[Rfam]
RNA sequence: ACAAGCAUGUACGACAUCAGGGUCCAGUUACAUUAAACCCCGAAUUUCGGGGUUUUUUGUUAUCUGAAGCUGACCAUUCGGAUGGAUAACUGGGCUUUUAAGCCCUUUUUUU
Numbered sequence: 001a002c003a004a005g006c007a008u009g010u011a012c013g014a015c016a017u018c019a020g021g022g023u024c025c026a027g028u029u030a031c032a033u034u035a036a037a038c039c040c041c042g043a044a045u046u047u048c049g050g051g052g053u054u055u056u057u058u059g060u061u062a063u064c065u066g067a068a069g070c071u072g073a074c075c076a077u078u079c080g081g082a083u084g085g086a087u088a089a090c091u092g093g094g095c096u097u098u099u100a101a102g103c104c105c106u107u108u109u110u111u112u
Stems, first nucleotide, its partner, number of pairs: 035055008092105004
Dot-bracket structure: ..................................((((((((.....))))))))....................................((((......)))).......
A member of the RNA family "Gammaprotebacteria rimP leader" from Veronia pacifica, 112 nucleotides long.
It is annotated as a cis-regulatory leader.
A search with the family's covariance model found it, with a score of 88 bits.
Rfam links the family to the GO term regulation of gene expression.